A member of the RNA family "Bacterial RNase P class A" from Flavobacterium sp. AG291, 323 nucleotides long. It scores 179 bits against the family's covariance model. The family's RNA type in Rfam is ribozyme. Taxonomically the source falls in Flavobacterium (Bacteria, Bacteroidota, Flavobacteriia, Flavobacteriaceae).

RNA sequence: GCCGCAGGCCAUCUUAUCGCUGCCCGCUCAGGCGGGGAGAGGAAAGUCCGGACACCAUAGGGCAGCAUAGCGGGUAAUUCCCGUCACUCCGUUUCGGCGGGGGAGGACAAGUGCAGCAGAAAGUAUGUACAGGUAAUGCUGUAGUGAAACCAGGUAAACUCUAUGCGGUGAAAUGCCAUGUAUACCGGCAAUUAAGGGCGGCUCGUCCGAUGCCGGGGGGUAGGCAGAUUGAUCUCUCUCAGUAAUGAAGAGACUAGAUAAAUGAUAAGAAACCCCGCUUUAGGGCGGGGUUACAGAAUCCGGCUUAUAGGCCUGCUAUUUUU
Numbered sequence: 001g002c003c004g005c006a007g008g009c010c011a012u013c014u015u016a017u018c019g020c021u022g023c024c025c026g027c028u029c030a031g032g033c034g035g036g037g038a039g040a041g042g043a044a045a046g047u048c049c050g051g052a053c054a055c056c057a058u059a060g061g062g063c064a065g066c067a068u069a070g071c072g073g074g075u076a077a078u079u080c081c082c083g084u085c086a087c088u089c090c091g092u093u094u095c096g097g098c099g100g101g102g103g104a105g106g107a108c109a110a111g112u113g114c115a116g117c118a119g120a121a122a123g124u125a126u127g128u129a130c131a132g133g134u135a136a137u138g139c140u141g142u143a144g145u146g147a148a149a150c151c152a153g154g155u156a157a158a159c160u161c162u163a164u165g166c167g168g169u170g171a172a173a174u175g176c177c178a179u180g181u182a183u184a185c186c187g188g189c190a191a192u193u194a195a196g197g198g199c200g201g202c203u204c205g206u207c208c209g210a211u212g213c214c215g216g217g218g219g220g221u222a223g224g225c226a227g228a229u230u231g232a233u234c235u236c237u238c239u240c241a242g243u244a245a246u247g248a249a250g251a252g253a254c255u256a257g258a259u260a261a262a263u264g265a266u267a268a269g270a271a272a273c274c275c276c277g278c279u280u281u282a283g284g285g286c287g288g289g290g291u292u293a294c295a296g297a298a299u300c301c302g303g304c305u306u307a308u309a310g311g312c313c314u315g316c317u318a319u320u321u322u323u
Base pairs, nucleotide, nucleotide: 001319004316005315006314007313008312009311010310011308012270013269014268015267016266017265018264020039021038023036024035025034026033027032044306045305046304048303049302050301051300052299053170054169055168056167060204061203062202063201065166066165067164068163069162070084071083072082073081074080085105087102088101089100090099091098092097106161107160111159112158113155114154128143129142130141131140132139174226175225176224177223185216186215187214188213189212196208197207198206199205233253234252235251236250237249239248240247241246